This 96-nucleotide sequence belongs to the Rfam family "DUF1874 RNA". It is one of the family's seed sequences.
[Rfam]
RNA sequence: GUUAGCCCCGCAAGGAGAUGGUCAUCCACAGGUAAGAUGCCCCAUAGGGGCACGCCAUCUCCUGCCACCUUUAGGUGGGUAUGCGGGGAAGGAGGA
Numbered sequence: 001g002u003u004a005g006c007c008c009c010g011c012a013a014g015g016a017g018a019u020g021g022u023c024a025u026c027c028a029c030a031g032g033u034a035a036g037a038u039g040c041c042c043c044a045u046a047g048g049g050g051c052a053c054g055c056c057a058u059c060u061c062c063u064g065c066c067a068c069c070u071u072u073a074g075g076u077g078g079g080u081a082u083g084c085g086g087g088g089a090a091g092g093a094g095g096a
Stems, first nucleotide, its partner, number of pairs: 006088007014062009036053001038052005065078004